[Rfam]
RNA sequence: ACGGCCUUACUUGAACAGGAUCUGUCCUAUAGGCUCGUACCACUGUAUCCUUGAGUUCUAAGGAGAUAGAAAACCAUACUCCACUUUAUCCUUGAAUUCUAAGGAGAUAGAAAACCAAGUCUGGUGGAUGAAUCGUGGCUAUUUGACCAGAGCUGUGAUUAACAACCCCCAUAUCCUUCCGGUCAUGGAGCCGUAGAUGAUUGUUCUAGCUCCUACUUCGGUGCGUUGAGAUGGUCUAAUGGCUGUCUGUCUGACU
Numbered sequence: 001a002c003g004g005c006c007u008u009a010c011u012u013g014a015a016c017a018g019g020a021u022c023u024g025u026c027c028u029a030u031a032g033g034c035u036c037g038u039a040c041c042a043c044u045g046u047a048u049c050c051u052u053g054a055g056u057u058c059u060a061a062g063g064a065g066a067u068a069g070a071a072a073a074c075c076a077u078a079c080u081c082c083a084c085u086u087u088a089u090c091c092u093u094g095a096a097u098u099c100u101a102a103g104g105a106g107a108u109a110g111a112a113a114a115c116c117a118a119g120u121c122u123g124g125u126g127g128a129u130g131a132a133u134c135g136u137g138g139c140u141a142u143u144u145g146a147c148c149a150g151a152g153c154u155g156u157g158a159u160u161a162a163c164a165a166c167c168c169c170c171a172u173a174u175c176c177u178u179c180c181g182g183u184c185a186u187g188g189a190g191c192c193g194u195a196g197a198u199g200a201u202u203g204u205u206c207u208a209g210c211u212c213c214u215a216c217u218u219c220g221g222u223g224c225g226u227u228g229a230g231a232u233g234g235u236c237u238a239a240u241g242g243c244u245g246u247c248u249g250u251c252u253g254a255c256u
Base pairs, nucleotide, nucleotide: 001038002037003035005033006032007031013027015025016024017023018022043110044109045108046107048105049104050103051102052101053100119255120254121253123251138243139242140241141240142239143238145236146235147234148233149232151205152204153203162194163193167190169188170187171186172185175182176181207228208227209226210225213223

The record is a 256-nucleotide RNA from Nicotiana tabacum, which matches "Plant small nucleolar RNA U3" in Rfam. By type it is a C/D-box small nucleolar RNA. Its Rfam clan is "U3 clan". On this family, see Zwieb, Nucleic Acids Res 1997: "The uRNA database". The organism belongs to Nicotiana, within Eukaryota. Rfam's curators write: Small nucleolar RNAs (snoRNAs) are involved in the processing and modification of rRNA in the nucleolus. There are two main classes of snoRNAs: the box C/D class, and the box H/ACA class. U3 snoRNA is a member of the box C/D class. Indeed, the box C/D element is a subset of the six short sequence elements found in all U3 snoRNAs, namely boxes A, A', B, C, C', and D. The U3 snoRNA secondary structure is characterised by a small 5' domain (with boxes A and A'), and a larger 3' domain (with boxes B, C, C', and D), the two domains being linked by a single-stranded hinge. Boxes B and C form the B/C motif, which appears to be exclusive to U3 snoRNAs, and boxes C' and D form the C'/D motif. The latter is functionally similar to the C/D motifs found in other snoRNAs. The 5' domain and the hinge region act as a pre-rRNA-binding domain. The 3' domain has conserved protein-binding sites. Both the box B/C and box C'/D motifs are sufficient for nuclear retention of U3 snoRNA. The box C'/D motif is also necessary for nucleolar localisation, stability and hyper-methylation of U3 snoRNA. Both box B/C and C'/D motifs are involved in specific protein interactions and are necessary for the rRNA processing functions of U3 snoRNA.